[Rfam]
RNA sequence: UAUCUCUGGCUCCUUUGCAUUUAACCGAGAAAAUCUUUCGCCUUUUACUAAAGAUUUCCGUGCAAAGGUGCAUUUUAUGAGUAUUGAAUAAUUUUUGGAAUCCCCUCGGAAGAGCGGGAU
Numbered sequence: 001u002a003u004c005u006c007u008g009g010c011u012c013c014u015u016u017g018c019a020u021u022u023a024a025c026c027g028a029g030a031a032a033a034u035c036u037u038u039c040g041c042c043u044u045u046u047a048c049u050a051a052a053g054a055u056u057u058c059c060g061u062g063c064a065a066a067g068g069u070g071c072a073u074u075u076u077a078u079g080a081g082u083a084u085u086g087a088a089u090a091a092u093u094u095u096u097g098g099a100a101u102c103c104c105c106u107c108g109g110a111a112g113a114g115c116g117g118g119a120u
Base pairs, nucleotide, nucleotide: 004081005080006079009071010070012068013067014066015065016064017063018062019061031057032056033055034054035053036052037051038050099120101119102118103117104116106114